[Rfam]
RNA sequence: CUUGGGGGGGCGGGGGGUCCUUCAGCCCGGAUUGUGAGAGGGUUCAGGCCAGGCCAAGGGACCCCGCCAAUGCACG
Numbered sequence: 001c002u003u004g005g006g007g008g009g010g011c012g013g014g015g016g017g018u019c020c021u022u023c024a025g026c027c028c029g030g031a032u033u034g035u036g037a038g039a040g041g042g043u044u045c046a047g048g049c050c051a052g053g054c055c056a057a058g059g060g061a062c063c064c065c066g067c068c069a070a071u072g073c074a075c076g
Stems, first nucleotide, its partner, number of pairs: 003074002006071001009068002014065009025054003029050002032047003036043001

The family of this 76-nucleotide RNA sequence from Myotis myotis is "mir-9193 microRNA precursor family". Lineage of the source: Eukaryota > Vertebrata > Sarcopterygii > Vespertilionidae > Myotis.